[Rfam]
RNA sequence: AGGACCUUUAAAUUUAGUCCAGAGAGACUAAGAAGGUCGCAUUAUAGAAGUGACGUAUACCUCCAUGCAGGUGGAUACGUGUACCUCUUUGCGACCUUCGCAAAGAGGUUUUUUUU
Numbered sequence: 001a002g003g004a005c006c007u008u009u010a011a012a013u014u015u016a017g018u019c020c021a022g023a024g025a026g027a028c029u030a031a032g033a034a035g036g037u038c039g040c041a042u043u044a045u046a047g048a049a050g051u052g053a054c055g056u057a058u059a060c061c062u063c064c065a066u067g068c069a070g071g072u073g074g075a076u077a078c079g080u081g082u083a084c085c086u087c088u089u090u091g092c093g094a095c096c097u098u099c100g101c102a103a104a105g106a107g108g109u110u111u112u113u114u115u116u
Stems, first nucleotide, its partner, number of pairs: 003038007014031006053080006060073001062071002081111001083109012
PyrR binding site: a 116-nucleotide RNA from Salinibacillus xinjiangensis. The match comes from Rfam's covariance-model search (65 bits). By type it is a cis-regulatory element. The family's consensus secondary structure is taken from published work.